[Rfam]
RNA sequence: GUAGAUGCUCAUUCCACUUCCUAUGUUUGCUUCGGCUUCAUAAAUCCGGGAAUGACGCAGAGCCAAUUUAGGGUGCCCGGGGCGUCCGCCGACCGAUGAAGACUUGCGCUCCAUCGGAUUCUGGACACAACGUUGAAUAAGGCGCCAAUCUUUUGUCUUACAGACCUGAUUUUUCCACGCUUGCCAUGACGGCAAGCGUUUUUUU
Numbered sequence: 001g002u003a004g005a006u007g008c009u010c011a012u013u014c015c016a017c018u019u020c021c022u023a024u025g026u027u028u029g030c031u032u033c034g035g036c037u038u039c040a041u042a043a044a045u046c047c048g049g050g051a052a053u054g055a056c057g058c059a060g061a062g063c064c065a066a067u068u069u070a071g072g073g074u075g076c077c078c079g080g081g082g083c084g085u086c087c088g089c090c091g092a093c094c095g096a097u098g099a100a101g102a103c104u105u106g107c108g109c110u111c112c113a114u115c116g117g118a119u120u121c122u123g124g125a126c127a128c129a130a131c132g133u134u135g136a137a138u139a140a141g142g143c144g145c146c147a148a149u150c151u152u153u154u155g156u157c158u159u160a161c162a163g164a165c166c167u168g169a170u171u172u173u174u175c176c177a178c179g180c181u182u183g184c185c186a187u188g189a190c191g192g193c194a195a196g197c198g199u200u201u202u203u204u205u
Stems, first nucleotide, its partner, number of pairs: 001063002006059003009055004015050001017049001019042001027035001029033001072146006084126005095115004155165003177199009
RNA: GlmZ RNA activator of glmS mRNA
Organism: Affinibrenneria salicis